[Rfam]
RNA sequence: ACCUAUUUGUGUUCACUGUGAUUGCCUUAAUGUGUGUUGUCUAUUAAGGCACGCGGUGAAUGCCAAGAGGA
Numbered sequence: 001a002c003c004u005a006u007u008u009g010u011g012u013u014c015a016c017u018g019u020g021a022u023u024g025c026c027u028u029a030a031u032g033u034g035u036g037u038u039g040u041c042u043a044u045u046a047a048g049g050c051a052c053g054c055g056g057u058g059a060a061u062g063c064c065a066a067g068a069g070g071a
Stems, first nucleotide, its partner, number of pairs: 003069002006066001009063008018054003025049008
RNA: mir-124 microRNA precursor family